[Rfam]
RNA sequence: CAAGGUGUGAGGAAAAGUAGAAAAAGCCUCUGGGGUCGAAACAAGGCAAGACUCCCGGAGGUUUUUUCUUUUG
Numbered sequence: 001c002a003a004g005g006u007g008u009g010a011g012g013a014a015a016a017g018u019a020g021a022a023a024a025a026g027c028c029u030c031u032g033g034g035g036u037c038g039a040a041a042c043a044a045g046g047c048a049a050g051a052c053u054c055c056c057g058g059a060g061g062u063u064u065u066u067u068c069u070u071u072u073g
Base pairs, nucleotide, nucleotide: 015069020068021067022066023065024064027061028060032056033055034054035052036051037050
This 73-nucleotide RNA from Cyanobacteria bacterium FACHB-502 belongs to the Rfam family "Cyano-1 RNA". The organism belongs to Cyanobacteriota, within Bacteria. A search with the family's covariance model found it, with a score of 56 bits. Pairs were carried over by alignment from the consensus structure, which is taken from published work.